The family of this 75-nucleotide RNA sequence from Crocodylus porosus is "Mammalian CPEB3 ribozyme". The match comes from Rfam's covariance-model search (52 bits).
RNA sequence: GGAGUACAAUAAAACCAUAGCAGAAGCACUAACAGUGCAGCCUUGUCAGAUUCCGAUGAAUCUGCAAAUUCUGCU
Numbered sequence: 001g002g003a004g005u006a007c008a009a010u011a012a013a014a015c016c017a018u019a020g021c022a023g024a025a026g027c028a029c030u031a032a033c034a035g036u037g038c039a040g041c042c043u044u045g046u047c048a049g050a051u052u053c054c055g056a057u058g059a060a061u062c063u064g065c066a067a068a069u070u071c072u073g074c075u
Stems, first nucleotide, its partner, number of pairs: 015040001019075007026038003047064007
Lineage of the source: Eukaryota > Bilateria > Craniata > Dipnotetrapodomorpha > Crocodylus.